[Rfam]
Shown here is a 194-nucleotide sequence from Agrilus planipennis, a member of the family "R2 RNA element". It is annotated as a cis-regulatory element. On this family, see Ruschak et al., RNA 2004: "Secondary structure models of the 3' untranslated regions of diverse R2 RNAs". It scores 42 bits against the family's covariance model.
RNA sequence: AUAUUAUUACAGCCCGUAUACAUGCAGGAAUGCUCUUCGAAUUUCGGCUGAAGAGGACCCUAGUUGGUCCUAAAACGGCCUGAGGUAGAGGGGUUUUAGUCGGUAGGUCCGAGGACUUCUUCCUCGGGAAUCCGACACUACCCAGUCGUAUGGACGGCUGGGUGUUUUCUGAAGAUUUCCCCUCUUCCACGAAA
Numbered sequence: 001a002u003a004u005u006a007u008u009a010c011a012g013c014c015c016g017u018a019u020a021c022a023u024g025c026a027g028g029a030a031u032g033c034u035c036u037u038c039g040a041a042u043u044u045c046g047g048c049u050g051a052a053g054a055g056g057a058c059c060c061u062a063g064u065u066g067g068u069c070c071u072a073a074a075a076c077g078g079c080c081u082g083a084g085g086u087a088g089a090g091g092g093g094u095u096u097u098a099g100u101c102g103g104u105a106g107g108u109c110c111g112a113g114g115a116c117u118u119c120u121u122c123c124u125c126g127g128g129a130a131u132c133c134g135a136c137a138c139u140a141c142c143c144a145g146u147c148g149u150a151u152g153g154a155c156g157g158c159u160g161g162g163u164g165u166u167u168u169c170u171g172a173a174g175a176u177u178u179c180c181c182c183u184c185u186u187c188c189a190c191g192a193a194a
Base pairs, nucleotide, nucleotide: 036193037192038191039190084188085187087185088184090181091180092179099136100135101134102133103132108128109127110126111125112124113123114122115121138164140163141162142161143160144159